[Rfam]
Nucleotides: 160
Base pairs, nucleotide, nucleotide: 013057014056015055016054017053018052019051020050022045023044026041027040028039029038031036060156062154063153064152065151073114074113075112076111077110078109079108080107081106082105083104084103085102087100088099089098119146120145121144122143126142127141128140129139131138132137
Number, partner (000 for none) and nucleotide at each position: 001000a002000g003000c004000a005000c006000a007000g008000c009000u010000a011000a012000a013057g014056c015055a016054u017053g018052u019051c020050u021000c022045c023044c024000g025000a026041a027040a028039g029038u030000g031036g032000a033000c034000a035000c036031c037000g038029g039028u040027u041026u042000c043000g044023g045022g046000a047000a048000a049000a050020a051019g052018a053017c054016a055015u056014g057013c058000g059000c060156c061000a062154a063153a064152u065151c066000a067000a068000g069000a070000a071000c072000c073114u074113a075112c076111a077110g078109c079108g080107u081106g082105u083104c084103g085102c086000g087100u088099g089098g090000a091000u092000c093000c094000u095000u096000u097000u098089u099088c100087a101000c102085g103084c104083g105082a106081c107080a108079c109078g110077c111076u112075g113074u114073a115000a116000u117000u118000g119146a120145g121144g122143u123000g124000c125000u126142g127141c128140g129139u130000c131138u132137c133000g134000a135000u136000g137132g138131a139129a140128u141127g142126c143122a144121c145120u146119u147000c148000g149000g150000c151065g152064g153063u154062u155000g156060g157000a158000g159000c160000u